[Rfam]
RNA sequence: UUUCUAUAUUCGCUGAAACCUUUUGGUACGGGGAAACCAGUUAUGUGGAUUCUAAAGAAUCCGGGGGUGAAUCCUUUUUAGGUAGGGCUACUCAAAGGUCCGAAUCCGACAGCUAACCUCGUAAGCGUUCAAUUGAGAAGGA
Numbered sequence: 001u002u003u004c005u006a007u008a009u010u011c012g013c014u015g016a017a018a019c020c021u022u023u024u025g026g027u028a029c030g031g032g033g034a035a036a037c038c039a040g041u042u043a044u045g046u047g048g049a050u051u052c053u054a055a056a057g058a059a060u061c062c063g064g065g066g067g068u069g070a071a072u073c074c075u076u077u078u079u080a081g082g083u084a085g086g087g088c089u090a091c092u093c094a095a096a097g098g099u100c101c102g103a104a105u106c107c108g109a110c111a112g113c114u115a116a117c118c119u120c121g122u123a124a125g126c127g128u129u130c131a132a133u134u135g136a137g138a139a140g141g142a
Stems, first nucleotide, its partner, number of pairs: 011127004018027003028122006038064001065107003073082003085101004
The family of this 142-nucleotide sequence from Mesobacillus subterraneus is "c-di-AMP riboswitch aptamer (ydaO/yuaA leader)".
This family represents a conserved RNA structure found upstream of the ydaO and yuaA genes in Bacillus subtilis and related genes in other bacteria.
Lineage of the source: Bacteria > Bacillati > Bacilli > Caryophanales > Mesobacillus.
The match comes from Rfam's covariance-model search (91 bits).
Pairs were carried over by alignment from the consensus structure.